A member of the RNA family "mir-877 microRNA precursor family" from Hordeum vulgare, 88 nucleotides long. The source organism's lineage runs through Eukaryota, Embryophyta, Poales, Poaceae and Hordeum vulgare. Pairs were carried over by alignment from the consensus structure, which was predicted with RNAalifold. A search with the family's covariance model found it, with a score of 48 bits. On this family, see Berezikov et al., Genome Res 2006: "Many novel mammalian microRNA candidates identified by extensive cloning and RAKE analysis". Rfam links the family to the GO terms miRNA-mediated post-transcriptional gene silencing and RISC complex.
RNA sequence: GAAGAGGAGAAGAAGCAGGGAAGAAGAAGGAUAAUAAGGAGGGCUCGUUCUCCUCCUUCUCCUUCUUCUCUUCUUCUUCUCCUCCUCC
Numbered sequence: 001g002a003a004g005a006g007g008a009g010a011a012g013a014a015g016c017a018g019g020g021a022a023g024a025a026g027a028a029g030g031a032u033a034a035u036a037a038g039g040a041g042g043g044c045u046c047g048u049u050c051u052c053c054u055c056c057u058u059c060u061c062c063u064u065c066u067u068c069u070c071u072u073c074u075u076c077u078u079c080u081c082c083u084c085c086u087c088c
Stems, first nucleotide, its partner, number of pairs: 004087006012076002015073001017071010028060001036058007043050001